[Rfam]
RNA: mir-194 microRNA precursor family
Nucleotides: 084
Base pairs, nucleotide, nucleotide: 010077011076012075016071017070018069019068020067021066022065023064027060028059029058030057031056033055034054035053
Number, partner (000 for none) and nucleotide at each position: 001000u002000g003000g004000u005000g006000c007000u008000c009000a010077c011076u012075g013000g014000c015000u016071g017070u018069a019068a020067c021066a022065g023064c024000a025000a026000c027060u028059c029058c030057a031056u032000g033055u034054g035053g036000a037000a038000a039000g040000u041000g042000c043000g044000u045000c046000g047000a048000u049000g050000u051000u052000u053035c054034c055033a056031g057030u058029g059028g060027a061000u062000g063000u064023g065022c066021u067020g068019u069018u070017a071016c072000c073000u074000g075012c076011a077010g078000c079000g080000g081000g082000c083000g084000a